This 405-nucleotide RNA sequence from Trichoderma harzianum belongs to the Rfam family "Nuclear RNase P". The organism belongs to Trichoderma harzianum, within Eukaryota. By type it is a ribozyme.
RNA sequence: GCCCUCAUCAACGCUGCGUUUCCAUGCUACAAACGGAGAGCCUGCGCAAGCAGCCUCUCGCAUCUUCUGCUCCUCGCAUGUGGGAAAUUCGGAGAAAGCUUCAAAGCAGGAGGAGCUCCCUCGGGGGUCUGCCUCUUGUGCUCGGUUCCAACGUUGACCGUUGUGUUCUCGAGUCCGCCUGUGAUGGCCUGGCGUCACCCCGACGUCUGCAACAGACAUCAGAAAUCUCAGGCCCGGGAGGCCUCGUGUGUAUACCCUCUUCGGGGGGGAAGACGCGGUGGUUUCUUUCUCGGUGCCUAUGGGAAGUCGUUGCGAAGCUUGUUGCGCAAACUUGAGUGCGAUAUGCAGCGUUUGUUUUGCUUCUGGCAAGAUGAAUCACACAAUUCCGAUCAUUCUGUUGAGGGC
Numbered sequence: 001g002c003c004c005u006c007a008u009c010a011a012c013g014c015u016g017c018g019u020u021u022c023c024a025u026g027c028u029a030c031a032a033a034c035g036g037a038g039a040g041c042c043u044g045c046g047c048a049a050g051c052a053g054c055c056u057c058u059c060g061c062a063u064c065u066u067c068u069g070c071u072c073c074u075c076g077c078a079u080g081u082g083g084g085a086a087a088u089u090c091g092g093a094g095a096a097a098g099c100u101u102c103a104a105a106g107c108a109g110g111a112g113g114a115g116c117u118c119c120c121u122c123g124g125g126g127g128u129c130u131g132c133c134u135c136u137u138g139u140g141c142u143c144g145g146u147u148c149c150a151a152c153g154u155u156g157a158c159c160g161u162u163g164u165g166u167u168c169u170c171g172a173g174u175c176c177g178c179c180u181g182u183g184a185u186g187g188c189c190u191g192g193c194g195u196c197a198c199c200c201c202g203a204c205g206u207c208u209g210c211a212a213c214a215g216a217c218a219u220c221a222g223a224a225a226u227c228u229c230a231g232g233c234c235c236g237g238g239a240g241g242c243c244u245c246g247u248g249u250g251u252a253u254a255c256c257c258u259c260u261u262c263g264g265g266g267g268g269g270a271a272g273a274c275g276c277g278g279u280g281g282u283u284u285c286u287u288u289c290u291c292g293g294u295g296c297c298u299a300u301g302g303g304a305a306g307u308c309g310u311u312g313c314g315a316a317g318c319u320u321g322u323u324g325c326g327c328a329a330a331c332u333u334g335a336g337u338g339c340g341a342u343a344u345g346c347a348g349c350g351u352u353u354g355u356u357u358u359g360c361u362u363c364u365g366g367c368a369a370g371a372u373g374a375a376u377c378a379c380a381c382a383a384u385u386c387c388g389a390u391c392a393u394u395c396u397g398u399u400g401a402g403g404g405c
Stems, first nucleotide, its partner, number of pairs: 001405004009397002013349007023080004036059005041053001090388005099317004177189001179187002191207006209313005215307001230298003350376011